[Rfam]
RNA sequence: CAAGCAAGCCAAGGACCAUAUGUUUGUGUUACACUUCAGCAUCUAAGCUUAUUAUAUUCAACACAAGGAGAAAGUCCCCGGAAAAAAAAAUAUCUUCUGUCCAAUGAUUAAAGAUUAGGGCAGUGGGUAUUUAGUAAAGCAACUUUGUUUGUUUGUUUUUUUCAUAAUAAAAGUAAUAUGGUCACCCUAUAAUAAUGGGGCAACUUAAUGGGGCUUACUCUGGCUUGUUU
Numbered sequence: 001c002a003a004g005c006a007a008g009c010c011a012a013g014g015a016c017c018a019u020a021u022g023u024u025u026g027u028g029u030u031a032c033a034c035u036u037c038a039g040c041a042u043c044u045a046a047g048c049u050u051a052u053u054a055u056a057u058u059c060a061a062c063a064c065a066a067g068g069a070g071a072a073a074g075u076c077c078c079c080g081g082a083a084a085a086a087a088a089a090a091u092a093u094c095u096u097c098u099g100u101c102c103a104a105u106g107a108u109u110a111a112a113g114a115u116u117a118g119g120g121c122a123g124u125g126g127g128u129a130u131u132u133a134g135u136a137a138a139g140c141a142a143c144u145u146u147g148u149u150u151g152u153u154u155g156u157u158u159u160u161u162u163c164a165u166a167a168u169a170a171a172a173g174u175a176a177u178a179u180g181g182u183c184a185c186c187c188u189a190u191a192a193u194a195a196u197g198g199g200g201c202a203a204c205u206u207a208a209u210g211g212g213g214c215u216u217a218c219u220c221u222g223g224c225u226u227g228u229u230u
Stems, first nucleotide, its partner, number of pairs: 002230010014183006023068001024066006036051001038049003072216003076213004092108003096104001111154003117150002120148004127143002185200006
RNA: RNase MRP
Organism: Puccinia triticina